[Rfam]
RNA sequence: GGGCGCCCCUUUCUCCGCCCACUCAGCCGCAACGUGGCAGCCGAGCGAGGGCCUCGGGGUGCCA
Numbered sequence: 001g002g003g004c005g006c007c008c009c010u011u012u013c014u015c016c017g018c019c020c021a022c023u024c025a026g027c028c029g030c031a032a033c034g035u036g037g038c039a040g041c042c043g044a045g046c047g048a049g050g051g052c053c054u055c056g057g058g059g060u061g062c063c064a
Stems, first nucleotide, its partner, number of pairs: 002063003007059004017052004022045003026041002030037001